[Rfam]
RNA sequence: CUGCAAACAUCCUCGCUCUUCUGAUCUGCUGGAAAUCAGGACAGGCUGAACACUGACUGUGCUAAGGUCAUGGGUGAAUCCCCAGACCUAGUUGUUUCCCUAGGUGUGGUAUUAUAAAUUCGGGUGAUAAAC
Numbered sequence: 001c002u003g004c005a006a007a008c009a010u011c012c013u014c015g016c017u018c019u020u021c022u023g024a025u026c027u028g029c030u031g032g033a034a035a036u037c038a039g040g041a042c043a044g045g046c047u048g049a050a051c052a053c054u055g056a057c058u059g060u061g062c063u064a065a066g067g068u069c070a071u072g073g074g075u076g077a078a079u080c081c082c083c084a085g086a087c088c089u090a091g092u093u094g095u096u097u098c099c100c101u102a103g104g105u106g107u108g109g110u111a112u113u114a115u116a117a118a119u120u121c122g123g124g125u126g127a128u129a130a131a132c
Stems, first nucleotide, its partner, number of pairs: 003057001016044002019041007067125003072121002082109003086105006
The family of this 132-nucleotide RNA from Peromyscus maniculatus is "Small nucleolar RNA SNORA72". The base pairs follow the family's consensus structure, which was predicted with PFOLD. The family's RNA type in Rfam is H/ACA-box small nucleolar RNA. About the family: U72 is a member of the H/ACA class of snoRNAs. A search with the family's covariance model found it, with a score of 89 bits. The source organism's lineage runs through Eukaryota, Deuterostomia, Euteleostomi, Boreoeutheria and Peromyscus maniculatus. The literature on the family includes a 1997 paper in Genes Dev by Ganot et al., "The family of box ACA small nucleolar RNAs is defined by an evolutionarily conserved secondary structure and ubiquitous sequence elements essential for RNA accumulation".